[Rfam]
RNA sequence: GCCAAGGUGGCAGAGUCCGGCCCAAUGCAGCGGCCUGCAGAGCCGCCUAUCGCCGGUUCAAAUCCGGCCCUUGGCU
Numbered sequence: 001g002c003c004a005a006g007g008u009g010g011c012a013g014a015g016u017c018c019g020g021c022c023c024a025a026u027g028c029a030g031c032g033g034c035c036u037g038c039a040g041a042g043c044c045g046c047c048u049a050u051c052g053c054c055g056g057u058u059c060a061a062a063u064c065c066g067g068c069c070c071u072u073g074g075c076u
Base pairs, nucleotide, nucleotide: 001075002074003073004072005071006070007069010028011027012026030046031045032044033043034042052068053067054066055065056064
A member of the RNA family "tRNA" from Halorutilus salinus, 76 nucleotides long. It is annotated as a transfer RNA. Taxonomically the source falls in Halorutilus (Archaea, Methanobacteriati, Methanobacteriota, Halorutilales). It scores 60 bits against the family's covariance model.